[Rfam]
RNA: Molybdenum/Tungsten riboswitch aptamer (Moco RNA motif)
Organism: Thalassomonas actiniarum
RNA sequence: AUAUAUUUUAAUCGCCGAGCUGAAACGGCUAAUUCAAAACCUAAGAUUAACGCUUUGUUUUGAAAUGUUGUUUUAAGCCGUGGCUGUCAUGUUGCCCCUGAUGUCAUAACAAGGGCUCAGGCAGCCACCAGGGUUAACAAGGAAACGCGUUAGCCUCCCGACAUUUGGAAAGGUGACAUGUUAACAGACAA
Numbered sequence: 001a002u003a004u005a006u007u008u009u010a011a012u013c014g015c016c017g018a019g020c021u022g023a024a025a026c027g028g029c030u031a032a033u034u035c036a037a038a039a040c041c042u043a044a045g046a047u048u049a050a051c052g053c054u055u056u057g058u059u060u061u062g063a064a065a066u067g068u069u070g071u072u073u074u075a076a077g078c079c080g081u082g083g084c085u086g087u088c089a090u091g092u093u094g095c096c097c098c099u100g101a102u103g104u105c106a107u108a109a110c111a112a113g114g115g116c117u118c119a120g121g122c123a124g125c126c127a128c129c130a131g132g133g134u135u136a137a138c139a140a141g142g143a144a145a146c147g148c149g150u151u152a153g154c155c156u157c158c159c160g161a162c163a164u165u166u167g168g169a170a171a172g173g174u175g176a177c178a179u180g181u182u183a184a185c186a187g188a189c190a191a
Base pairs, nucleotide, nucleotide: 004184012176013175014174015173016172019078020077021076022074023073024072025071026070027069028068029067033064034063035062036061037060038059039058040057080128081127082126083125084124085123086122087121088120131156132155133154134153135152136151137150138149141146157168158167